Source information:
The family of this 59-nucleotide sequence from Actinotalea soli is "msiK RNA". The family has 120 seed sequences and 1,374 matches in Rfam 15.1. By type it is a cis-regulatory element.
RNA sequence: CCACGACUCCCAUCACGACGGAUCGUCCGGCACGUACCUGCCGGUGAAGGGAAGUACCG
Numbered sequence: 001c002c003a004c005g006a007c008u009c010c011c012a013u014c015a016c017g018a019c020g021g022a023u024c025g026u027c028c029g030g031c032a033c034g035u036a037c038c039u040g041c042c043g044g045u046g047a048a049g050g051g052a053a054g055u056a057c058c059g
Stems, first nucleotide, its partner, number of pairs: 009051003013047003027044006